[Rfam]
RNA: mir-6132 microRNA precursor family
RNA sequence: UGCUAUUGUCUUACUGCUACAGCAGGGCUGGGGAUUGCAGUAUCCGCUGUUGCUGCUGCUCCCAGUCCUGCCCCUGCUGCUACCUAGUCCAGCC
Numbered sequence: 001u002g003c004u005a006u007u008g009u010c011u012u013a014c015u016g017c018u019a020c021a022g023c024a025g026g027g028c029u030g031g032g033g034a035u036u037g038c039a040g041u042a043u044c045c046g047c048u049g050u051u052g053c054u055g056c057u058g059c060u061c062c063c064a065g066u067c068c069u070g071c072c073c074c075u076g077c078u079g080c081u082a083c084c085u086a087g088u089c090c091a092g093c094c
Base pairs, nucleotide, nucleotide: 002093003092004091008089010087011086016080017079020076021075022071023070024069025068026067027066028065029064030063031062032061033060037056038055039054040053041052042051